The family of this 236-nucleotide RNA sequence from Miscanthus lutarioriparius is "MIR6217 microRNA precursor family".

RNA sequence: UGGCUAUAAAAUAACUUAUUCUAUUAUUCUAUAGCUACUUUGAGUUAUGAUAAUUAUUAUGCUAAUUUACACGAUUAUAGUAACUCCUUACAGUGUGAUUUACUAUAACGUUACAAUAAAUAUCCACAUGUGUUAUAGUAACCCAACUAUCGCAAAUAUGUAUUGACAUUAUUGUAAAUUAGUAUAUAAAAUUAUUGUAAAUAGAGGUGGCUACAGGAUAACUUAUUUUGUCGCCG
Numbered sequence: 001u002g003g004c005u006a007u008a009a010a011a012u013a014a015c016u017u018a019u020u021c022u023a024u025u026a027u028u029c030u031a032u033a034g035c036u037a038c039u040u041u042g043a044g045u046u047a048u049g050a051u052a053a054u055u056a057u058u059a060u061g062c063u064a065a066u067u068u069a070c071a072c073g074a075u076u077a078u079a080g081u082a083a084c085u086c087c088u089u090a091c092a093g094u095g096u097g098a099u100u101u102a103c104u105a106u107a108a109c110g111u112u113a114c115a116a117u118a119a120a121u122a123u124c125c126a127c128a129u130g131u132g133u134u135a136u137a138g139u140a141a142c143c144c145a146a147c148u149a150u151c152g153c154a155a156a157u158a159u160g161u162a163u164u165g166a167c168a169u170u171a172u173u174g175u176a177a178a179u180u181a182g183u184a185u186a187u188a189a190a191a192u193u194a195u196u197g198u199a200a201a202u203a204g205a206g207g208u209g210g211c212u213a214c215a216g217g218a219u220a221a222c223u224u225a226u227u228u229u230g231u232c233g234c235c236g
Base pairs, nucleotide, nucleotide: 001236002235003234004233006231007230008229009228010227011226012225013224014223016221017220018219019218028217029216030215032213033212034211035210036209037208038207039206040205041204045200046199047198048197049196050195051194052193053192054191055190058186059185060184061183062182063181064180065179066178067177068176069175070174073173074172075171077169078168082163088155089154091152095150096149097148099146100145101140102139103138104137105136106135107134108133109132110131111130
The base pairs follow the family's consensus structure, which was predicted with RNAalifold.